A member of the RNA family "Bacterial large subunit ribosomal RNA" from Prauserella flavalba, 600 nucleotides of a longer RNA. The source organism's lineage runs through Bacteria, Bacillati, Actinomycetota, Pseudonocardiales and Prauserella. The family is grouped with related families in Rfam's "LSU clan".
[Rfam]
RNA sequence: UGUGUAGGGCACAUGGUGGAUGUCUGGGCACUAGGGGCCGAUGAAGGACGUGGGAGGCUGCGAUAAGCCUCGGGGAGCUGUCAACCGAGCUGUGAUCCGAGGGUGUCCGAAUGGGGUAACCCGGCACCUGUUAUGAGGUGUCACCCGCACCUGAAUGUAUAGGGUGUGUGGAGGGAACGCGGGGAAGUGAAACAUCUCAGUACCCGUAGGAAGAGAAAACAAGUGUGAUUCCGUGAGUAGUGGCGAGCGAAAGCGGAGGAGGCUAAACCGUGCGCAUGUCAAGCUGUCAGGUGUUGUGUGUGCGGGGUUGUGGGACCUGUCGUCCAGGGGCUGACACUUCUGGCGCUGAUACACAUGGUUAGUGGAACCGCUUGGGAUGGCGGGCCGGAGUGGGUGAGAGUCCCGUACGCGAAAACUGUGUUGUGUUGGUGUGAUGGUGUUCCCGAGUAGCAGCGAGCUCGUGGAAUUUGCUGUGAAUCUGCCGGGACCACCCGGUAAGCCUAAAUACUUCCUGGUGACCGAUAGCGGACGAGUACCGUGAGGGAAAGAUGAAAAGUACCCCGGGAGGGGAGUGAAAGAGUACCUGAAACCGUGUGCCUG
Numbered sequence: 001u002g003u004g005u006a007g008g009g010c011a012c013a014u015g016g017u018g019g020a021u022g023u024c025u026g027g028g029c030a031c032u033a034g035g036g037g038c039c040g041a042u043g044a045a046g047g048a049c050g051u052g053g054g055a056g057g058c059u060g061c062g063a064u065a066a067g068c069c070u071c072g073g074g075g076a077g078c079u080g081u082c083a084a085c086c087g088a089g090c091u092g093u094g095a096u097c098c099g100a101g102g103g104u105g106u107c108c109g110a111a112u113g114g115g116g117u118a119a120c121c122c123g124g125c126a127c128c129u130g131u132u133a134u135g136a137g138g139u140g141u142c143a144c145c146c147g148c149a150c151c152u153g154a155a156u157g158u159a160u161a162g163g164g165u166g167u168g169u170g171g172a173g174g175g176a177a178c179g180c181g182g183g184g185a186a187g188u189g190a191a192a193c194a195u196c197u198c199a200g201u202a203c204c205c206g207u208a209g210g211a212a213g214a215g216a217a218a219a220c221a222a223g224u225g226u227g228a229u230u231c232c233g234u235g236a237g238u239a240g241u242g243g244c245g246a247g248c249g250a251a252a253g254c255g256g257a258g259g260a261g262g263c264u265a266a267a268c269c270g271u272g273c274g275c276a277u278g279u280c281a282a283g284c285u286g287u288c289a290g291g292u293g294u295u296g297u298g299u300g301u302g303c304g305g306g307g308u309u310g311u312g313g314g315a316c317c318u319g320u321c322g323u324c325c326a327g328g329g330g331c332u333g334a335c336a337c338u339u340c341u342g343g344c345g346c347u348g349a350u351a352c353a354c355a356u357g358g359u360u361a362g363u364g365g366a367a368c369c370g371c372u373u374g375g376g377a378u379g380g381c382g383g384g385c386c387g388g389a390g391u392g393g394g395u396g397a398g399a400g401u402c403c404c405g406u407a408c409g410c411g412a413a414a415a416c417u418g419u420g421u422u423g424u425g426u427u428g429g430u431g432u433g434a435u436g437g438u439g440u441u442c443c444c445g446a447g448u449a450g451c452a453g454c455g456a457g458c459u460c461g462u463g464g465a466a467u468u469u470g471c472u473g474u475g476a477a478u479c480u481g482c483c484g485g486g487a488c489c490a491c492c493c494g495g496u497a498a499g500c501c502u503a504a505a506u507a508c509u510u511c512c513u514g515g516u517g518a519c520c521g522a523u524a525g526c527g528g529a530c531g532a533g534u535a536c537c538g539u540g541a542g543g544g545a546a547a548g549a550u551g552a553a554a555a556g557u558a559c560c561c562c563g564g565g566a567g568g569g570g571a572g573u574g575a576a577a578g579a580g581u582a583c584c585u586g587a588a589a590c591c592g593u594g595u596g597c598c599u600g
Base pairs, nucleotide, nucleotide: 007599008598009597010596011595012594013593014592015591016590022584023549024548027520028519029517030516031515032514033513034512035511036509037508038174039173046108047107048106049062050061051060068102069101070100071099072098073097074096077090078089079088113122114121115120123142124141125140126139127138128137129136144171145170146168147167148166149165150164151163152162178209179207180206181205182204183203189196190195219226220225229505230257231256232255233254234253240248241247260502261501262500263499268305269304270303271302272301273300274299275298276297277296278295312444313443314442317437318436319435320434348426353421354420355419356418357417358416359415360414362410363409364408368383369382370381371380372379386390392404393403394402450474451473452472453471454470455469456468457467481496482495483494484493485492536543537542559570560569561568562567